[Rfam]
About this RNA: Shown here is a 67-nucleotide RNA from Psylliodes chrysocephalus, a member of the family "mir-2 microRNA precursor family". For this family Rfam cites "An extensive class of small RNAs in Caenorhabditis elegans" (Lee and Ambros, Science, 2001). NCBI's taxonomy places the organism under Eukaryota, Eumetazoa, Panarthropoda, Insecta, Psylliodes. Pairs were carried over by alignment from the consensus structure, which was predicted with PFOLD.

RNA sequence: UCCCUCAUCAAGUGGAUGUGAAAUGUUGUUUUUGGUUUCAUAUCACAGCCAGCUUUGAUGAGCGUAA
Numbered sequence: 001u002c003c004c005u006c007a008u009c010a011a012g013u014g015g016a017u018g019u020g021a022a023a024u025g026u027u028g029u030u031u032u033u034g035g036u037u038u039c040a041u042a043u044c045a046c047a048g049c050c051a052g053c054u055u056u057g058a059u060g061a062g063c064g065u066a067a
Stems, first nucleotide, its partner, number of pairs: 005061006011054002013051003017047005024042003